The record is an 85-nucleotide sequence from Psychroflexus gondwanensis, which matches "Flavo-1 RNA" in Rfam.
The match comes from Rfam's covariance-model search (52 bits).
The family's consensus secondary structure is taken from published work.

RNA sequence: AAGUGACCCGCGUAAGGGAUAGAAGCGGCAUCCCUCAUUCCCGAUAUUUAUCGGAAUGAGGAUAUAGCGGAUAGCCCGGCGCUUU
Numbered sequence: 001a002a003g004u005g006a007c008c009c010g011c012g013u014a015a016g017g018g019a020u021a022g023a024a025g026c027g028g029c030a031u032c033c034c035u036c037a038u039u040c041c042c043g044a045u046a047u048u049u050a051u052c053g054g055a056a057u058g059a060g061g062a063u064a065u066a067g068c069g070g071a072u073a074g075c076c077c078g079g080c081g082c083u084u085u
Stems, first nucleotide, its partner, number of pairs: 016077003020073002025068002030063004036058005042053003